Description: This 106-nucleotide RNA sequence from Gracilibacillus halotolerans belongs to the Rfam family "SAM riboswitch aptamer (S box leader)". Pairs were carried over by alignment from the consensus structure, which is taken from published work. Taxonomically the source falls in Gracilibacillus (Bacteria, Bacillota, Bacilli, Caryophanales).
[Rfam]
RNA sequence: CUCUUAUCAAGAGAGGUGGAGGGACUGGCCCUUUGAAGCCUCGGCAACAGGCAUUUUUGAAUGCACUGUGCCAAUUCCAGAAAGCUUUAUGCUUUGAAGAUAAGAA
Numbered sequence: 001c002u003c004u005u006a007u008c009a010a011g012a013g014a015g016g017u018g019g020a021g022g023g024a025c026u027g028g029c030c031c032u033u034u035g036a037a038g039c040c041u042c043g044g045c046a047a048c049a050g051g052c053a054u055u056u057u058u059g060a061a062u063g064c065a066c067u068g069u070g071c072c073a074a075u076u077c078c079a080g081a082a083a084g085c086u087u088u089a090u091g092c093u094u095u096g097a098a099g100a101u102a103a104g105a106a
Stems, first nucleotide, its partner, number of pairs: 002105007013042005021031003025080004043072004048068002051064004076098001081095005